This 77-nucleotide RNA from Cyprinus carpio belongs to the Rfam family "mir-363 microRNA precursor family". The family has 22 seed sequences and 620 matches in Rfam 15.1. NCBI's taxonomy places the organism under Eukaryota, Deuterostomia, Chordata, Cyprinidae, Cyprinus. The family's consensus secondary structure was predicted with RNAalifold. The sequence is in the family's curated seed alignment. For this family Rfam cites "Small RNA expression and strain specificity in the rat" (Linsen et al., BMC Genomics, 2010). Clan: mir-19 clan.
[Rfam]
RNA sequence: UUUCGGGUGGAUGACCCCGCAAUUUUAAUAGUGGCAAAAAUCUUCCAACAAAAAUUGCACGGUAUCCAUCUGUAAUC
Numbered sequence: 001u002u003u004c005g006g007g008u009g010g011a012u013g014a015c016c017c018c019g020c021a022a023u024u025u026u027a028a029u030a031g032u033g034g035c036a037a038a039a040a041u042c043u044u045c046c047a048a049c050a051a052a053a054a055u056u057g058c059a060c061g062g063u064a065u066c067c068a069u070c071u072g073u074a075a076u077c
Stems, first nucleotide, its partner, number of pairs: 004072009014063002019058008